[Rfam]
Nucleotides: 084
Base pairs, nucleotide, nucleotide: 008078009077010076012074015071016070018068020066021065022064023063024062025061026060027059028058029057034052035051036050039047040046
Number, partner (000 for none) and nucleotide at each position: 001000u002000u003000u004000a005000c006000u007000u008078a009077a010076a011000u012074u013000c014000a015071u016070a017000u018068g019000g020066a021065a022064u023063u024062g025061g026060a027059a028058c029057g030000g031000u032000u033000g034052c035051c036050u037000a038000c039047g040046u041000u042000u043000g044000c045000c046040g047039c048000u049000a050036g051035g052034g053000g054000c055000g056000c057029u058028g059027u060026u061025c062024c063023a064022a065021u066020u067000g068018c069000a070016u071015a072000c073000a074012a075000u076010u077009u078008u079000g080000c081000g082000u083000u084000a